[Rfam]
RNA sequence: GGCCCAUUGGUCAAGCGGUUAAGACACCACCCUUUCACGGUGGUAACAGGAGUUCGAUUCUCCUAUGGGUCA
Numbered sequence: 001g002g003c004c005c006a007u008u009g010g011u012c013a014a015g016c017g018g019u020u021a022a023g024a025c026a027c028c029a030c031c032c033u034u035u036c037a038c039g040g041u042g043g044u045a046a047c048a049g050g051a052g053u054u055c056g057a058u059u060c061u062c063c064u065a066u067g068g069g070u071c072a
Stems, first nucleotide, its partner, number of pairs: 001071007010025003027043005048064005
A member of the RNA family "tRNA" from Sarcina ventriculi, 72 nucleotides long. About the family: Transfer RNA (tRNA) molecules are approximately 80 nucleotides in length. Pairs were carried over by alignment from the consensus structure, which is taken from published work.